[Rfam]
The record is a 138-nucleotide sequence from Cnephaeus nilssonii, which matches "Small nucleolar RNA SNORA33" in Rfam. ACA33 is a member of the H/ACA class of snoRNA that guide the sites of modification of uridines to pseudouridines. Rfam links the family to the GO terms nucleolus and RNA processing.

RNA sequence: UAGCAGGAAACUUAGAAAAUUUGCUAUAAAAAAUGCAAAUUUUUCUGCAGAAAUUUAGAGAAAGCUGGCAAUAGUAAAGCCAUGUUAUGAGCCUUAAAGACAUUGAAGUCAUUAAGGUCCCUGAAAAUGGCUAUAAGA
Numbered sequence: 001u002a003g004c005a006g007g008a009a010a011c012u013u014a015g016a017a018a019a020u021u022u023g024c025u026a027u028a029a030a031a032a033a034u035g036c037a038a039a040u041u042u043u044u045c046u047g048c049a050g051a052a053a054u055u056u057a058g059a060g061a062a063a064g065c066u067g068g069c070a071a072u073a074g075u076a077a078a079g080c081c082a083u084g085u086u087a088u089g090a091g092c093c094u095u096a097a098a099g100a101c102a103u104u105g106a107a108g109u110c111a112u113u114a115a116g117g118u119c120c121c122u123g124a125a126a127a128u129g130g131c132u133a134u135a136a137g138a
Stems, first nucleotide, its partner, number of pairs: 003069002006066002020051005079131004091118007099110003